[Rfam]
RNA: S10-Clostridia ribosomal protein leader
Organism: Clostridium thermobutyricum
RNA sequence: AUGCGGCGAUGAGUCAAGAGGUUGCCGGACUUCCGGGUAAUUCUUGAUGAGUAUGUCAGGAUCUAGAAUCCGACGA
Numbered sequence: 001a002u003g004c005g006g007c008g009a010u011g012a013g014u015c016a017a018g019a020g021g022u023u024g025c026c027g028g029a030c031u032u033c034c035g036g037g038u039a040a041u042u043c044u045u046g047a048u049g050a051g052u053a054u055g056u057c058a059g060g061a062u063c064u065a066g067a068a069u070c071c072g073a074c075g076a
Stems, first nucleotide, its partner, number of pairs: 014047003018043003025036004054075004059071004